[Rfam]
Background:
The record is a 28-nucleotide RNA from Cetraspora pellucida, which matches "CRISPR RNA direct repeat element" in Rfam. Rfam 15.1 lists 24 matches to the family in 12 species. The base pairs follow the family's consensus structure, which was predicted with WAR. The source organism's lineage runs through Eukaryota, Glomeromycota, Glomeromycotina, Gigasporaceae and Cetraspora.
RNA sequence: CUUCAAUAUUAUCUAAUAAUUCUUAAAC
Numbered sequence: 001c002u003u004c005a006a007u008a009u010u011a012u013c014u015a016a017u018a019a020u021u022c023u024u025a026a027a028c
Stems, first nucleotide, its partner, number of pairs: 007018004